Small nucleolar RNA SNORA12: a 143-nucleotide RNA from Pelecanus crispus. Rfam classes the family as an H/ACA-box small nucleolar RNA.
RNA sequence: UAUUGUGGUGGUUUCUGUAUUUGGCAGAUCUGCAACUGUAUCAGAGCGGCCUUGAACUACCACAGAGAUCAGAAAGGAGAAGGCUGUGCUGAGAACUUCUUCAAGCUUUUAGUUUUCAGCUUUUUUGUUCAGCUCCUACAGAA
Numbered sequence: 001u002a003u004u005g006u007g008g009u010g011g012u013u014u015c016u017g018u019a020u021u022u023g024g025c026a027g028a029u030c031u032g033c034a035a036c037u038g039u040a041u042c043a044g045a046g047c048g049g050c051c052u053u054g055a056a057c058u059a060c061c062a063c064a065g066a067g068a069u070c071a072g073a074a075a076g077g078a079g080a081a082g083g084c085u086g087u088g089c090u091g092a093g094a095a096c097u098u099c100u101u102c103a104a105g106c107u108u109u110u111a112g113u114u115u116u117c118a119g120c121u122u123u124u125u126u127g128u129u130c131a132g133c134u135c136c137u138a139c140a141g142a143a
Stems, first nucleotide, its partner, number of pairs: 005063007023051003027047001029045004076136004103126003
A reference for the family is Gu et al. (2005), "A novel experimental approach for systematic identification of box H/ACA snoRNAs from eukaryotes", Nucleic Acids Res. Its family is annotated with nucleolus and RNA processing in the Gene Ontology.